[Rfam]
RNA sequence: GCAAUCUCGGAUUUGUCUUAAUAUUGAUAAACUGGGGGAUACGCGUGAUAACUAUUCAGGCUGAGUAUUUAUUGCGUAGGGUAGGUAUCGACAAGCUCUUUUGUCGAUAGAUGGGAUACUAAUGUCGCUAAUGCGACAUGUUGAUGGGAAACCCAACA
Numbered sequence: 001g002c003a004a005u006c007u008c009g010g011a012u013u014u015g016u017c018u019u020a021a022u023a024u025u026g027a028u029a030a031a032c033u034g035g036g037g038g039a040u041a042c043g044c045g046u047g048a049u050a051a052c053u054a055u056u057c058a059g060g061c062u063g064a065g066u067a068u069u070u071a072u073u074g075c076g077u078a079g080g081g082u083a084g085g086u087a088u089c090g091a092c093a094a095g096c097u098c099u100u101u102u103g104u105c106g107a108u109a110g111a112u113g114g115g116a117u118a119c120u121a122a123u124g125u126c127g128c129u130a131a132u133g134c135g136a137c138a139u140g141u142u143g144a145u146g147g148g149a150a151a152c153c154c155a156a157c158a
Stems, first nucleotide, its partner, number of pairs: 006036005043077008053067002086109010123138006
The family of this 158-nucleotide RNA sequence from Vibrio aquimaris is "DABA-DC-AT RNA".